[Rfam]
RNA sequence: UGUAAGUAACGCGGGAGCCCCGGGAUGUCGGGGCUGAGAGUGGGCCAAGGACUCCGGCCCUGACCGUCGUACCUGAUCCGGGUCAUGCCGGCGAAGGGAGUUGGCUCCGAUUGUGA
Numbered sequence: 001u002g003u004a005a006g007u008a009a010c011g012c013g014g015g016a017g018c019c020c021c022g023g024g025a026u027g028u029c030g031g032g033g034c035u036g037a038g039a040g041u042g043g044g045c046c047a048a049g050g051a052c053u054c055c056g057g058c059c060c061u062g063a064c065c066g067u068c069g070u071a072c073c074u075g076a077u078c079c080g081g082g083u084c085a086u087g088c089c090g091g092c093g094a095a096g097g098g099a100g101u102u103g104g105c106u107c108c109g110a111u112u113g114u115g116a
Base pairs, nucleotide, nucleotide: 007103008102009101010100011067012066013065014064016061017034018033019032020031021030042059043058045056072097073096074095078091079090080089081088
A member of the RNA family "TPP riboswitch aptamer (THI element)" from Mycobacteroides abscessus, 116 nucleotides long.